[Rfam]
RNA sequence: GGUCACGAGUGCCAGCGCCAAGCCCCGGCUCGCUGGCCGGCAACCCCCUCCGCGGCGGGGUGCCCCGGGUGAGGACCAGGCAGCGGUCCAAUCGGCCGGCUGCAAGCGCUGACC
Numbered sequence: 001g002g003u004c005a006c007g008a009g010u011g012c013c014a015g016c017g018c019c020a021a022g023c024c025c026c027g028g029c030u031c032g033c034u035g036g037c038c039g040g041c042a043a044c045c046c047c048c049u050c051c052g053c054g055g056c057g058g059g060g061u062g063c064c065c066c067g068g069g070u071g072a073g074g075a076c077c078a079g080g081c082a083g084c085g086g087u088c089c090a091a092u093c094g095g096c097c098g099g100c101u102g103c104a105a106g107c108g109c110u111g112a113c114c
Stems, first nucleotide, its partner, number of pairs: 001077004009038001011037006021030002039064003044060003047055002080103005086097001088095002
This 114-nucleotide RNA sequence from Allostreptomyces psammosilenae belongs to the Rfam family "SAM (S-adenosyl methionine) riboswitch aptamer". The organism belongs to Allostreptomyces, within Bacteria. Its family is annotated with S-adenosylmethionine metabolic process and regulation of gene expression in the Gene Ontology. The base pairs follow the family's consensus structure, which is taken from published work. On this family, see Weinberg et al., RNA 2008: "The aptamer core of SAM-IV riboswitches mimics the ligand-binding site of SAM-I riboswitches".